[Rfam]
RNA sequence: GGAGUAUAAGAACCCGACUCUUAAUUUUUAACCGAAAAUGCUAAGAGUCGGCUUUUAAAUAAGAGAUUUAAGAGCCGACUCUUAACUUUUUCAGUUAAAAGUUAAGAGUCGGGUUCUUAUAUUCC
Numbered sequence: 001g002g003a004g005u006a007u008a009a010g011a012a013c014c015c016g017a018c019u020c021u022u023a024a025u026u027u028u029u030a031a032c033c034g035a036a037a038a039u040g041c042u043a044a045g046a047g048u049c050g051g052c053u054u055u056u057a058a059a060u061a062a063g064a065g066a067u068u069u070a071a072g073a074g075c076c077g078a079c080u081c082u083u084a085a086c087u088u089u090u091u092c093a094g095u096u097a098a099a100a101g102u103u104a105a106g107a108g109u110c111g112g113g114u115u116c117u118u119a120u121a122u123u124c125c
Base pairs, nucleotide, nucleotide: 001125002124003123004122005121006120007119008118009117010116011115012114013113014112015111016110017109018108019107020106021105022104023103024102025101026100027099028098029097030096031095032094034092035091036090037089038088042084043083044082045081046080047079
RNA: MIR9563 microRNA precursor family
Organism: Brassica cretica